[Rfam]
RNA: MIR2617 microRNA precursor family
RNA sequence: AAUUAGUGUGACAUGCCCGUUGUUGUUGAACUCUAAUAUUUUAUUUAUUAUUUAAUUGUUUGGGUUAACGGGGUGUUACAGCAAU
Numbered sequence: 001a002a003u004u005a006g007u008g009u010g011a012c013a014u015g016c017c018c019g020u021u022g023u024u025g026u027u028g029a030a031c032u033c034u035a036a037u038a039u040u041u042u043a044u045u046u047a048u049u050a051u052u053u054a055a056u057u058g059u060u061u062g063g064g065u066u067a068a069c070g071g072g073g074u075g076u077u078a079c080a081g082c083a084a085u
Stems, first nucleotide, its partner, number of pairs: 002085003007080008016072006